[Rfam]
RNA sequence: UCCGGCAUAGCUCAGUUGGUAGAGCAUCUGACUGUUAAUCAGGUUGUCGACGGUUCGAGCCCGCCUGCCGGAG
Number, nucleotide and partner (000 for none) at each position: 001u072002c071003c070004g069005g068006c067007a066008u000009a000010g025011c024012u023013c022014a000015g000016u000017u000018g000019g000020u000021a000022g013023a012024g011025c010026a000027u043028c042029u041030g040031a039032c000033u000034g000035u000036u000037a000038a000039u031040c030041a029042g028043g027044u000045u000046g000047u000048c000049g065050a000051c063052g062053g061054u000055u000056c000057g000058a000059g000060c000061c053062c052063g051064c000065c049066u007067g006068c005069c004070g003071g002072a001073g000

tRNA: a 73-nucleotide sequence from Liquorilactobacillus oeni. By type it is a transfer RNA. Gene Ontology term of the family: triplet codon-amino acid adaptor activity.